A member of the RNA family "Small nucleolar RNA SNORA8" from Cnephaeus nilssonii, 129 nucleotides long.
ACA8 is a member of the H/ACA class of snoRNA that guide the sites of modification of uridines to pseudouridines.
The family's RNA type in Rfam is H/ACA-box small nucleolar RNA.
NCBI's taxonomy places the organism under Eukaryota, Bilateria, Deuterostomia, Dipnotetrapodomorpha, Cnephaeus.
[Rfam]
RNA sequence: GGAGAUGUUCUCCUGCAUUCAGCAAUUUAUUCCUGCUGGGUGUUCAAAGGACAGUGCAAUUUAAAUGCAGUAUCUGGCAUCGUCAGUUUUCUUGGCUCUGUGCAUGUUAAACCUGAUAUUUUUACACUA
Numbered sequence: 001g002g003a004g005a006u007g008u009u010c011u012c013c014u015g016c017a018u019u020c021a022g023c024a025a026u027u028u029a030u031u032c033c034u035g036c037u038g039g040g041u042g043u044u045c046a047a048a049g050g051a052c053a054g055u056g057c058a059a060u061u062u063a064a065a066u067g068c069a070g071u072a073u074c075u076g077g078c079a080u081c082g083u084c085a086g087u088u089u090u091c092u093u094g095g096c097u098c099u100g101u102g103c104a105u106g107u108u109a110a111a112c113c114u115g116a117u118a119u120u121u122u123u124a125c126a127c128u129a
Base pairs, nucleotide, nucleotide: 001052011051012050013049014048015043016042017041018040019039020038021037022036023035024034060124063121064120065119066118068115069114070113077103078102079101080100